[Rfam]
RNA sequence: UAGAAGCAUCAAGAGUCAGGCCGACGCCUGACACCAACCUGCCUCCGUGCAAGGUGGUGCCUUCCCUGUCUGACAGUGUGAAGGGAUGUGGCCAGAAGACCGGCAAUAUACGGACCCAUG
Numbered sequence: 001u002a003g004a005a006g007c008a009u010c011a012a013g014a015g016u017c018a019g020g021c022c023g024a025c026g027c028c029u030g031a032c033a034c035c036a037a038c039c040u041g042c043c044u045c046c047g048u049g050c051a052a053g054g055u056g057g058u059g060c061c062u063u064c065c066c067u068g069u070c071u072g073a074c075a076g077u078g079u080g081a082a083g084g085g086a087u088g089u090g091g092c093c094a095g096a097a098g099a100c101c102g103g104c105a106a107u108a109u110a111c112g113g114a115c116c117c118a119u120g
Stems, first nucleotide, its partner, number of pairs: 006089005015032001017030005033058003038054003041050002091104003